[Rfam]
RNA sequence: CUGUAAUAUUUUUGCUGUUCUGAGUUAGUAGUAUCGAGACAGGCUAAACAUUCACUACAAAGACCAUGCAGUGUCCCCAGACCUAAUUCUUUCACUGGGUCUGGUUUUGUAAAUGCUGGUGAUAAAC
Numbered sequence: 001c002u003g004u005a006a007u008a009u010u011u012u013u014g015c016u017g018u019u020c021u022g023a024g025u026u027a028g029u030a031g032u033a034u035c036g037a038g039a040c041a042g043g044c045u046a047a048a049c050a051u052u053c054a055c056u057a058c059a060a061a062g063a064c065c066a067u068g069c070a071g072u073g074u075c076c077c078c079a080g081a082c083c084u085a086a087u088u089c090u091u092u093c094a095c096u097g098g099g100u101c102u103g104g105u106u107u108u109g110u111a112a113a114u115g116c117u118g119g120u121g122a123u124a125a126a127c
Stems, first nucleotide, its partner, number of pairs: 003055002015042005021036003025033001063120004068116002077104009